[Rfam]
RNA sequence: UCAGGAUCAAUGAUGUUUAAAUACUGCGUUAUCUUCCUGAAAAAGUUUCUCCAAUGAGGAAUUUUGUAAGAUGACAAAAUGCCUACUGAGGUCCUUC
Numbered sequence: 001u002c003a004g005g006a007u008c009a010a011u012g013a014u015g016u017u018u019a020a021a022u023a024c025u026g027c028g029u030u031a032u033c034u035u036c037c038u039g040a041a042a043a044a045g046u047u048u049c050u051c052c053a054a055u056g057a058g059g060a061a062u063u064u065u066g067u068a069a070g071a072u073g074a075c076a077a078a079a080u081g082c083c084u085a086c087u088g089a090g091g092u093c094c095u096u097c
Stems, first nucleotide, its partner, number of pairs: 003095005
The record is a 97-nucleotide sequence from Papaver somniferum, which matches "Small nucleolar RNA snoR27" in Rfam. The family's consensus secondary structure was predicted with WAR. It scores 42 bits against the family's covariance model. On this family, see Brown et al., RNA 2001: "Multiple snoRNA gene clusters from Arabidopsis".